[Rfam]
RNA sequence: AUUGGAUAAAUGAUGUUUUGUUUCUCAUCUGCGUUAUCUAGCUGCAAUUUUCUAGUCCAGAAAUUGAAGAUAAUUUAUGUUCUGCUGAUAUCCAAU
Numbered sequence: 001a002u003u004g005g006a007u008a009a010a011u012g013a014u015g016u017u018u019u020g021u022u023u024c025u026c027a028u029c030u031g032c033g034u035u036a037u038c039u040a041g042c043u044g045c046a047a048u049u050u051u052c053u054a055g056u057c058c059a060g061a062a063a064u065u066g067a068a069g070a071u072a073a074u075u076u077a078u079g080u081u082c083u084g085c086u087g088a089u090a091u092c093c094a095a096u
Stems, first nucleotide, its partner, number of pairs: 001096007
Notes
A member of the RNA family "Small nucleolar RNA snoR27" from Carnegiea gigantea, 96 nucleotides long. On this family, see Brown et al., RNA 2001: "Multiple snoRNA gene clusters from Arabidopsis". The family's RNA type in Rfam is C/D-box small nucleolar RNA. The family is grouped with related families in Rfam's "snR68 clan". The family has 6 seed sequences and 649 matches in Rfam 15.1.